[Rfam]
RNA sequence: AAGCCCAUCCGGGCCCCUCUGGCGGUCGCUCAAGCGGCCGUGAUGUCGGACGGGAACG
Dot-bracket structure: .....(.(((((.........((((((((....))))))))....))))).)......
The record is a 58-nucleotide RNA sequence from Sphingomonas cremea, which matches "terC RNA" in Rfam. It scores 59 bits against the family's covariance model. It is annotated as a cis-regulatory element.